[Rfam]
RNA sequence: UCAUCAUCACCAUCACCGAACCUAAUCUUUCGGGCGGAUGGUGCUACUCGGAAGAUAAGACUUCCGAAACAGUGCGGUGAACCAGCAAUAUAAACCUUUCGGAAGUCAACUUCUGAAAGGUUUUUUAC
Numbered sequence: 001u002c003a004u005c006a007u008c009a010c011c012a013u014c015a016c017c018g019a020a021c022c023u024a025a026u027c028u029u030u031c032g033g034g035c036g037g038a039u040g041g042u043g044c045u046a047c048u049c050g051g052a053a054g055a056u057a058a059g060a061c062u063u064c065c066g067a068a069a070c071a072g073u074g075c076g077g078u079g080a081a082c083c084a085g086c087a088a089u090a091u092a093a094a095c096c097u098u099u100c101g102g103a104a105g106u107c108a109a110c111u112u113c114u115g116a117a118a119g120g121u122u123u124u125u126u127a128c
Base pairs, nucleotide, nucleotide: 009045011040012039013038014037017034048067049066050065051064052063053062054061090125092123093122094121095120096119097118098117099116100115101114102113103112104111105110
Rfam assigns this 128-nucleotide RNA sequence from Lonepinella koalarum to the family "Histidine operon leader". It is annotated as a cis-regulatory leader. A reference for the family is Kolter and Yanofsky (1982), "Attenuation in amino acid biosynthetic operons", Annu Rev Genet. The organism belongs to Lonepinella, within Bacteria.